[Rfam]
RNA: Archaeal large subunit ribosomal RNA, nucleotides 903 to 1351
RNA sequence: CCAACCGAAACAUGUCGAAGCAUGACCUCUGAUGAGAUAGUCCGUGAGGUAGAGCGACCGAUUGGGAAUCCGGCCUCCGAGAGGAGUUCGCUUCCCUGUCAAACUCCAAACUUACGGACAUCGUAGACUCAGGGAGUCCGGUGUGCGGGGUAAGCUUGUGCACCGUGAGGGAGACAACCCAGAGCCAGGUUAAGGACCCAAAGUGUGGAUUAAGUGUGAUCGAAGAUUGUCUCGAGCCCUAAACAGCCGGGAGGUGAGCUUAGAAGCAGCUACCCUCUAAGAAUAGCGUAACAGCUUACCGGCCGAGGUUCGAGGCGUCGAAAAUGAUCGGGACUCAAAUCCACCUCCGAGACCUGGCGGCGUGCUAUUUAGCACGGUUCCGUAGGUUGGCAUACUGCAUGGACGGAAGUACGGGUGAGAACUCGUAUGGACCGUGCAGCAACGAAAAU
Numbered sequence: 001c002c003a004a005c006c007g008a009a010a011c012a013u014g015u016c017g018a019a020g021c022a023u024g025a026c027c028u029c030u031g032a033u034g035a036g037a038u039a040g041u042c043c044g045u046g047a048g049g050u051a052g053a054g055c056g057a058c059c060g061a062u063u064g065g066g067a068a069u070c071c072g073g074c075c076u077c078c079g080a081g082a083g084g085a086g087u088u089c090g091c092u093u094c095c096c097u098g099u100c101a102a103a104c105u106c107c108a109a110a111c112u113u114a115c116g117g118a119c120a121u122c123g124u125a126g127a128c129u130c131a132g133g134g135a136g137u138c139c140g141g142u143g144u145g146c147g148g149g150g151u152a153a154g155c156u157u158g159u160g161c162a163c164c165g166u167g168a169g170g171g172a173g174a175c176a177a178c179c180c181a182g183a184g185c186c187a188g189g190u191u192a193a194g195g196a197c198c199c200a201a202a203g204u205g206u207g208g209a210u211u212a213a214g215u216g217u218g219a220u221c222g223a224a225g226a227u228u229g230u231c232u233c234g235a236g237c238c239c240u241a242a243a244c245a246g247c248c249g250g251g252a253g254g255u256g257a258g259c260u261u262a263g264a265a266g267c268a269g270c271u272a273c274c275c276u277c278u279a280a281g282a283a284u285a286g287c288g289u290a291a292c293a294g295c296u297u298a299c300c301g302g303c304c305g306a307g308g309u310u311c312g313a314g315g316c317g318u319c320g321a322a323a324a325u326g327a328u329c330g331g332g333a334c335u336c337a338a339a340u341c342c343a344c345c346u347c348c349g350a351g352a353c354c355u356g357g358c359g360g361c362g363u364g365c366u367a368u369u370u371a372g373c374a375c376g377g378u379u380c381c382g383u384a385g386g387u388u389g390g391c392a393u394a395c396u397g398c399a400u401g402g403a404c405g406g407a408a409g410u411a412c413g414g415g416u417g418a419g420a421a422c423u424c425g426u427a428u429g430g431a432c433c434g435u436g437c438a439g440c441a442a443c444g445a446a447a448a449u
Base pairs, nucleotide, nucleotide: 001390002389003388004387005386006385011024012023013022014021015020026136027134028133029132030131031130032129036122037121038120040119041118042117043116044115045114046113047112052107053105054104060100061099062098064096065095066094067093068092073089075086076085077084078083140164141163142162143161144160145159146158147157148156169180170179171178184358185357186356187355188354189353190352194348195347196346203345205344206343207342208341209340210339225319226318227317229316230315231314232313233312234311235310236309237308238307246303247302248301249300250299252276253275254274257271258270259269277281282297286295287294359380360379361376362375363374364373365372391444393441395439396438397437398436399435400434401433402432409428410427411426412425413424414423415422416421